[Rfam]
RNA sequence: CUGGCAACCAUGAAGGUCUGCCUGCAAACCAACCUCUGGUGGGGCAGACCCGAAAACCUGGCGUG
Numbered sequence: 001c002u003g004g005c006a007a008c009c010a011u012g013a014a015g016g017u018c019u020g021c022c023u024g025c026a027a028a029c030c031a032a033c034c035u036c037u038g039g040u041g042g043g044g045c046a047g048a049c050c051c052g053a054a055a056a057c058c059u060g061g062c063g064u065g
Base pairs, nucleotide, nucleotide: 001065004062005061015050016049017048018047019046020045021044022043023042029039030038031037
RNA: Selenocysteine insertion sequence 1